[Rfam]
RNA sequence: ACAAUGAUACUUCCGUACGUGGCUGGCGACGAAACAGGCAGGGGCGAGAGGCCCAUGG
Numbered sequence: 001a002c003a004a005u006g007a008u009a010c011u012u013c014c015g016u017a018c019g020u021g022g023c024u025g026g027c028g029a030c031g032a033a034a035c036a037g038g039c040a041g042g043g044g045c046g047a048g049a050g051g052c053c054c055a056u057g058g
Stems, first nucleotide, its partner, number of pairs: 012055001013022003023041003027037001042054003
RNA: pemK RNA